Rfam assigns this 73-nucleotide RNA from Alligator sinensis to the family "Mammalian CPEB3 ribozyme". Rfam describes the family as follows. The mammalian CPEB3 ribozyme is a self cleaving RNA located in the second intron of the CPEB3 gene which belongs to a family of genes regulating messenger RNA polyadenylation. This ribozyme is highly conserved and found only in mammals. The CPEB3 ribozyme is structurally and biochemically related to the human hepatitis delta virus (HDV) ribozyme and the HDV ribozyme is proposed to have arisen from the human transcriptome. There is currently only one other known self cleaving ribozyme in mammals, the CoTC motif. The base pairs follow the family's consensus structure, which is taken from published work. The match comes from Rfam's covariance-model search (45 bits). Lineage of the source: Eukaryota > Opisthokonta > Sauria > Alligatoridae > Alligator.
[Rfam]
RNA sequence: CAUUCUGUCCUGCUGGCCAUAGCAGAAGUGUUCACAUCAUGACCUCUGUCAGGUAAUACCUGCAAAUUCUGCU
Numbered sequence: 001c002a003u004u005c006u007g008u009c010c011u012g013c014u015g016g017c018c019a020u021a022g023c024a025g026a027a028g029u030g031u032u033c034a035c036a037u038c039a040u041g042a043c044c045u046c047u048g049u050c051a052g053g054u055a056a057u058a059c060c061u062g063c064a065a066a067u068u069c070u071g072c073u
Base pairs, nucleotide, nucleotide: 015044016043018041021073022072023071024070025069026068027067028040029039030038050062051061052060053059054058